[Rfam]
The record is a 48-nucleotide RNA from Serpentinimonas raichei, which matches "Guanidine-II riboswitch aptamer (mini-ykkC)" in Rfam. The source organism's lineage runs through Bacteria, Pseudomonadota, Betaproteobacteria, Burkholderiales and Serpentinimonas. The family has 72 seed sequences and 1,589 matches in Rfam 15.1. Simpler in structure and has fewer highly conserved nucleotide positions than the ykkC-yxkD leader. Despite this each of its two stem-loop structures directly bind free guanidine. Therefore, mini-ykkC RNA motif represents a distinct class of guanidine-sensing RNAs. Its crystal structure was also determined. The literature on the family includes a 2007 paper in Nucleic Acids Res by Weinberg et al., "Identification of 22 candidate structured RNAs in bacteria using the CMfinder comparative genomics pipeline".

RNA sequence: ACGACGGGACGACCCGUCUGAUCGCCUCACAUGGGCAGGACGACCUGC
Number, nucleotide and partner (000 for none) at each position: 001a000002c000003g018004a017005c016006g015007g014008g013009a000010c000011g000012a000013c008014c007015c006016g005017u004018c003019u000020g000021a000022u000023c000024g000025c000026c000027u000028c000029a000030c000031a000032u000033g000034g000035g048036c047037a046038g045039g044040a000041c000042g000043a000044c039045c038046u037047g036048c035